Notes:
A member of the RNA family "F6 TB sRNA" from Labedaea rhizosphaerae, 57 nucleotides long. The source organism's lineage runs through Bacteria, Actinomycetota, Pseudonocardiales, Pseudonocardiaceae and Labedaea. The family has 16 seed sequences and 310 matches in Rfam 15.1.
RNA sequence: UGGCAGACCCCGUGUGGCCGGCGGACCCCCGACCUGCUUGCCACGCGGGGUUUUCUC
Numbered sequence: 001u002g003g004c005a006g007a008c009c010c011c012g013u014g015u016g017g018c019c020g021g022c023g024g025a026c027c028c029c030c031g032a033c034c035u036g037c038u039u040g041c042c043a044c045g046c047g048g049g050g051u052u053u054u055c056u057c
Base pairs, nucleotide, nucleotide: 002056003055005053007051008050009049010048011047012046013045014044015043016042017041018040020038021037022036
For this family Rfam cites "Identification of small RNAs in Mycobacterium tuberculosis" (Arnvig and Young, Mol Microbiol, 2009).